[Rfam]
RNA sequence: AACGUCAGCGCGCUUUACUGACGUAGCAGCAAAUCACGUCCUAGAGGGCGUGAUUUGUUGCCACGUCAGCAAAGCGUGCUGACAUGG
Numbered sequence: 001a002a003c004g005u006c007a008g009c010g011c012g013c014u015u016u017a018c019u020g021a022c023g024u025a026g027c028a029g030c031a032a033a034u035c036a037c038g039u040c041c042u043a044g045a046g047g048g049c050g051u052g053a054u055u056u057g058u059u060g061c062c063a064c065g066u067c068a069g070c071a072a073a074g075c076g077u078g079c080u081g082a083c084a085u086g087g
Stems, first nucleotide, its partner, number of pairs: 002085001004083013018069004023064002026061013040047002
RNA: MIR7486 microRNA precursor family
Organism: Gossypium mustelinum